[Rfam]
RNA sequence: AGAAGCCUUCCCCGGCUGGGGUGGAAUGCUUGCCUCGUUGCCGUGGCAACAAAGCAAGCAUUCCGCCAGGCCGCUCACACUGCCUGC
Number, nucleotide and partner (000 for none) at each position: 001a000002g000003a000004a000005g083006c082007c000008u000009u000010c000011c000012c000013c073014g072015g071016c070017u069018g000019g000020g067021g066022u065023g064024g063025a062026a061027u060028g059029c058030u057031u056032g055033c054034c000035u000036c000037g050038u049039u048040g047041c046042c000043g000044u000045g000046g041047c040048a039049a038050c037051a000052a000053a000054g033055c032056a031057a030058g029059c028060a027061u026062u025063c024064c023065g022066c021067c020068a000069g017070g016071c015072c014073g013074c000075u000076c000077a000078c000079a000080c000081u000082g006083c005084c000085u000086g000087c000